[Rfam]
RNA sequence: AGUUGAUGCACAUGGCGGUUUUCCUCCCAGUUCCGCUGCAACAGCUGUUCCCCUCUGGAGGUUCAUACCUUCAAACUCACGGGCCGCGGUUUUUCCGGCGGCCCUUUUU
Numbered sequence: 001a002g003u004u005g006a007u008g009c010a011c012a013u014g015g016c017g018g019u020u021u022u023c024c025u026c027c028c029a030g031u032u033c034c035g036c037u038g039c040a041a042c043a044g045c046u047g048u049u050c051c052c053c054u055c056u057g058g059a060g061g062u063u064c065a066u067a068c069c070u071u072c073a074a075a076c077u078c079a080c081g082g083g084c085c086g087c088g089g090u091u092u093u094u095c096c097g098g099c100g101g102c103c104c105u106u107u108u109u
Stems, first nucleotide, its partner, number of pairs: 001046005007040003015036004056073007081104006087097003
Alphaproteobacterial ar15: a 109-nucleotide RNA sequence from Ensifer fredii. On this family, see del Val et al., RNA Biol 2012: "A survey of sRNA families in alpha-proteobacteria". Rfam classes the family as a small RNA.